The family of this 114-nucleotide RNA from Rhizobium phaseoli is "Guanidine-I riboswitch aptamer".

[Rfam]
RNA sequence: CGAGUUGGUGGCUAGGGUUCCGGCGCUCUCUUUGGGAGCGUGCUGGUCCGAGAGCCACCACCGGCUGGGCGAGAAAUCCCACCGGAUGCACGGCGGGACAAAAGCCCGGGAGAC
Numbered sequence: 001c002g003a004g005u006u007g008g009u010g011g012c013u014a015g016g017g018u019u020c021c022g023g024c025g026c027u028c029u030c031u032u033u034g035g036g037a038g039c040g041u042g043c044u045g046g047u048c049c050g051a052g053a054g055c056c057a058c059c060a061c062c063g064g065c066u067g068g069g070c071g072a073g074a075a076a077u078c079c080c081a082c083c084g085g086a087u088g089c090a091c092g093g094c095g096g097g098a099c100a101a102a103a104g105c106c107c108g109g110g111a112g113a114c
Base pairs, nucleotide, nucleotide: 007059008058009057010056011055012054015049016048020046021045022043023041024040025039026038027037028036060087062085064083066081067080068079069078089109091112095107096106097105
Lineage of the source: Bacteria > Pseudomonadota > Alphaproteobacteria > Hyphomicrobiales > Rhizobium.
On this family, see Barrick et al., Proc Natl Acad Sci U S A 2004: "New RNA motifs suggest an expanded scope for riboswitches in bacterial genetic control".
Rfam 15.1 lists 1,509 matches to the family in 1,281 species.